[Rfam]
RNA: Ribosomal protein L20 leader
Organism: Propionispora vibrioides
RNA sequence: AGUAGUAAGCAGAAGCCAUCCGCUUCUCACCUUACAACGGAAAGUUCGUAAGGUCCAUAUGGGCAUGAUGUAUAUUUAUGCUUUUUGGCGGAUGGUAGUAUAUACCAUCCGUUUUUAGUUUUUUUA
Numbered sequence: 001a002g003u004a005g006u007a008a009g010c011a012g013a014a015g016c017c018a019u020c021c022g023c024u025u026c027u028c029a030c031c032u033u034a035c036a037a038c039g040g041a042a043a044g045u046u047c048g049u050a051a052g053g054u055c056c057a058u059a060u061g062g063g064c065a066u067g068a069u070g071u072a073u074a075u076u077u078a079u080g081c082u083u084u085u086u087g088g089c090g091g092a093u094g095g096u097a098g099u100a101u102a103u104a105c106c107a108u109c110c111g112u113u114u115u116u117a118g119u120u121u122u123u124u125u126a
Stems, first nucleotide, its partner, number of pairs: 011027006029054003034049002037045002087113010